[Rfam]
RNA sequence: ACAGUAAAAGGCAAACCUAUUGAAAAAUGGGGACGCAAAGUCACAGGUCUACGGUUUAAACAACUAAGAUGGCUGGACUGCCUAAU
Numbered sequence: 001a002c003a004g005u006a007a008a009a010g011g012c013a014a015a016c017c018u019a020u021u022g023a024a025a026a027a028u029g030g031g032g033a034c035g036c037a038a039a040g041u042c043a044c045a046g047g048u049c050u051a052c053g054g055u056u057u058a059a060a061c062a063a064c065u066a067a068g069a070u071g072g073c074u075g076g077a078c079u080g081c082c083u084a085a086u
Base pairs, nucleotide, nucleotide: 001086003083004082011036012035016031017030018029019028020027021026034072039079040078041077042076044075045074046073047070048069049068
Rfam assigns this 86-nucleotide sequence from Salinibacillus xinjiangensis to the family "c-di-GMP-I-GGC riboswitch aptamer". Pairs were carried over by alignment from the consensus structure, which is taken from published work.